This 76-nucleotide sequence from Hipposideros armiger belongs to the Rfam family "Small nucleolar RNA SNORD19". The family is grouped with related families in Rfam's "SNORD19 clan". Rfam links the family to the GO terms nucleolus and RNA processing. For this family Rfam cites "RNomics: an experimental approach that identifies 201 candidates for novel, small, non-messenger RNAs in mouse" (Huttenhofer et al., EMBO J, 2001).
[Rfam]
RNA sequence: AAGAAAUGAGGAUUCUGAGAUUGGUCUUAGUGAUAAAGUGAAGACACUCAGAUCCAACUCUGAUCUUGGUCUAAAC
Numbered sequence: 001a002a003g004a005a006a007u008g009a010g011g012a013u014u015c016u017g018a019g020a021u022u023g024g025u026c027u028u029a030g031u032g033a034u035a036a037a038g039u040g041a042a043g044a045c046a047c048u049c050a051g052a053u054c055c056a057a058c059u060c061u062g063a064u065c066u067u068g069g070u071c072u073a074a075a076c
Base pairs, nucleotide, nucleotide: 001067002066003065004064

A search with the family's covariance model found it, with a score of 36 bits. The pairing is the family consensus, mapped onto this sequence.